[Rfam]
RNA: Small nucleolar RNA snoR77
Organism: Setaria italica
RNA sequence: AGGCAGCCCCUUUGUCCAAACUCAACGGCAAUGGUGGUGUUGCGUUUCUCGGAGAAUAAAUCUUCUGAUCUUCAGAUCAGCUGAGAGGGGAGGUCACCUUCUCUCGUUGAGGCUGGUCUAGUAAGUCAUAAGAACAUC
Numbered sequence: 001a002g003g004c005a006g007c008c009c010c011u012u013u014g015u016c017c018a019a020a021c022u023c024a025a026c027g028g029c030a031a032u033g034g035u036g037g038u039g040u041u042g043c044g045u046u047u048c049u050c051g052g053a054g055a056a057u058a059a060a061u062c063u064u065c066u067g068a069u070c071u072u073c074a075g076a077u078c079a080g081c082u083g084a085g086a087g088g089g090g091a092g093g094u095c096a097c098c099u100u101c102u103c104u105c106g107u108u109g110a111g112g113c114u115g116g117u118c119u120a121g122u123a124a125g126u127c128a129u130a131a132g133a134a135c136a137u138c
Base pairs, nucleotide, nucleotide: 002041003040004039005038007037008036009034010033012031013030014029015028016027062132063131064130067127068126069125074119075118076117077116078115080113081112082111085105086104087103088102089101090100091099